[Rfam]
RNA sequence: GUUGGCCGGAAGAAGACGGUUGGGAGAGACACAAAGGCUUCUAAUAGCCUCAUCAUAACUCCCGGGAAGGUCUGAGAGAAGGUCCCUGUGAGAUCUAGGAGAUCUUCCACUAUCCUUAUAGAGGAGAGGCUGUAGAAGAAGAGUUUCCCCCGCGCGGGUUUGGAAACGGCCUCGACCAGCAACUCCAUCGAAUUAGCUGAGUGCGAUCGUCACACCAACACAAUUCAGACUAGUCUUCGGCCAAC
Numbered sequence: 001g002u003u004g005g006c007c008g009g010a011a012g013a014a015g016a017c018g019g020u021u022g023g024g025a026g027a028g029a030c031a032c033a034a035a036g037g038c039u040u041c042u043a044a045u046a047g048c049c050u051c052a053u054c055a056u057a058a059c060u061c062c063c064g065g066g067a068a069g070g071u072c073u074g075a076g077a078g079a080a081g082g083u084c085c086c087u088g089u090g091a092g093a094u095c096u097a098g099g100a101g102a103u104c105u106u107c108c109a110c111u112a113u114c115c116u117u118a119u120a121g122a123g124g125a126g127a128g129g130c131u132g133u134a135g136a137a138g139a140a141g142a143g144u145u146u147c148c149c150c151c152g153c154g155c156g157g158g159u160u161u162g163g164a165a166a167c168g169g170c171c172u173c174g175a176c177c178a179g180c181a182a183c184u185c186c187a188u189c190g191a192a193u194u195a196g197c198u199g200a201g202u203g204c205g206a207u208c209g210u211c212a213c214a215c216c217a218a219c220a221c222a223a224u225u226c227a228g229a230c231u232a233g234u235c236u237u238c239g240g241c242c243a244a245c
Stems, first nucleotide, its partner, number of pairs: 001245004008238003019208001022063005035050005072228005081177004091105005106125003110121004126173007147158002
This 245-nucleotide sequence from Caenorhabditis brenneri belongs to the Rfam family "Nuclear RNase P". Rfam's curators write: Ribonuclease P (RNase P) is a ubiquitous endoribonuclease, found in archaea, bacteria and eukarya as well as chloroplasts and mitochondria. Rfam classes the family as a ribozyme. Rfam's curators put it in the seed alignment. The family has 116 seed sequences and 3,848 matches in Rfam 15.1.